[Rfam]
Shown here is a 154-nucleotide sequence from Enterococcus faecalis, a member of the family "Listeria sRNA rli38". Lineage of the source: Bacteria > Bacillota > Bacilli > Enterococcus > Enterococcus faecalis.

RNA sequence: ACAGGUAGGAAUAAAGAGCCAACAUGAUAUGAAUGAGAGUGCCGUUAAAUCAACGUUUUUCAACUUACAAAAUGCUUGAAUUUCAUUAAAAAUGAUAUGGAUCCCCCUACCAAAAUAAAACCCUGCUGAGAUGAUACUUGGCAGGGAAUUUUUU
Number, nucleotide and partner (000 for none) at each position: 001a000002c000003a000004g000005g000006u000007a000008g104009g103010a102011a000012u000013a000014a000015a000016g000017a000018g000019c000020c000021a000022a000023c000024a000025u000026g000027a000028u000029a000030u000031g000032a000033a000034u000035g000036a000037g000038a000039g000040u000041g000042c000043c000044g000045u000046u000047a082048a081049a000050u079051c078052a077053a076054c000055g075056u074057u000058u072059u071060u070061c000062a000063a000064c000065u000066u000067a000068c000069a000070a060071a059072a058073u000074g056075c055076u053077u052078g051079a050080a000081u048082u047083u095084c094085a093086u092087u000088a000089a000090a000091a000092a086093u085094g084095a083096u000097a000098u000099g000100g000101a000102u010103c009104c008105c000106c000107c000108u000109a000110c000111c000112a000113a000114a000115a000116u000117a150118a149119a000120a000121c146122c145123c144124u143125g142126c141127u140128g139129a138130g137131a000132u000133g000134a000135u000136a000137c130138u129139u128140g127141g126142c125143a124144g123145g122146g121147a000148a000149u118150u117151u000152u000153u000154u000
Rfam classes the family as a small RNA.